[Rfam]
RNA sequence: CUAGGGGAUGAGUGAGAUUGUUGCAUAUUUACAUUGCUGGUAUGUAUUAUGCAACGUUUCACUCUACUCCGGGGA
Numbered sequence: 001c002u003a004g005g006g007g008a009u010g011a012g013u014g015a016g017a018u019u020g021u022u023g024c025a026u027a028u029u030u031a032c033a034u035u036g037c038u039g040g041u042a043u044g045u046a047u048u049a050u051g052c053a054a055c056g057u058u059u060c061a062c063u064c065u066a067c068u069c070c071g072g073g074g075a
Stems, first nucleotide, its partner, number of pairs: 001073002004070004010064009020055008030046004035042002
Annotation
This 75-nucleotide RNA sequence from Schistosoma japonicum belongs to the Rfam family "mir-2162 microRNA precursor family". Lineage of the source: Eukaryota > Platyhelminthes > Digenea > Strigeidida > Schistosoma.